[Rfam]
RNA sequence: GGUUUCCAUUGGGGCAAUCCAAUCACCUAGAUUUGAGAUGAAAAGCAAUUCCCCAUUUGGUAGCAAAUAGUUAUCCCAUUAAGCGGAGGAAAGUAUUA
Number, nucleotide and partner (000 for none) at each position: 001g000002g000003u000004u000005u000006c000007c000008a000009u022010u021011g020012g019013g000014g000015c000016a000017a000018u000019c012020c011021a010022a009023u000024c000025a000026c000027c000028u000029a000030g000031a000032u000033u000034u000035g000036a000037g000038a000039u000040g000041a000042a000043a000044a000045g000046c000047a000048a000049u000050u000051c088052c000053c086054c085055a079056u078057u000058u000059g075060g074061u073062a072063g071064c070065a000066a000067a000068u000069a000070g064071u063072u062073a061074u060075c059076c000077c000078a056079u055080u000081a000082a000083g000084c000085g054086g053087a000088g051089g000090a000091a000092a000093g000094u000095a000096u000097u000098a000